Source information:
A member of the RNA family "Guanidine-I riboswitch aptamer" from Bradyrhizobium sp. ORS 278, 103 nucleotides long. Pairs were carried over by alignment from the consensus structure. Lineage of the source: Bacteria > Pseudomonadati > Alphaproteobacteria > Hyphomicrobiales > Bradyrhizobium. For this family Rfam cites "New RNA motifs suggest an expanded scope for riboswitches in bacterial genetic control" (Barrick et al., Proc Natl Acad Sci U S A, 2004).
RNA sequence: AGAGUUGGCAGCUAGGGUUCCGGUUCUCAUCGCGAGAACGCUGGUCCGAGAGCAGCCGCCAGGGGAGAGCCCUGGUGCACGGCGGGAUAAAAACCCGGGAGAC
Number, nucleotide and partner (000 for none) at each position: 001a000002g000003a000004g000005u000006u000007g057008g056009c055010a000011g053012c052013u000014a000015g047016g046017g000018u000019u000020c044021c043022g041023g039024u038025u037026c036027u035028c034029a000030u000031c000032g000033c000034g028035a027036g026037a025038a024039c023040g000041c022042u000043g021044g020045u000046c016047c015048g000049a000050g000051a000052g012053c011054a000055g009056c008057c007058g076059c075060c074061a073062g072063g071064g070065g000066a000067g000068a000069g000070c064071c063072c062073u061074g060075g059076u058077g000078c098079a000080c101081g000082g000083c000084g096085g095086g094087a000088u000089a000090a000091a000092a000093a000094c086095c085096c084097g000098g078099g000100a000101g080102a000103c000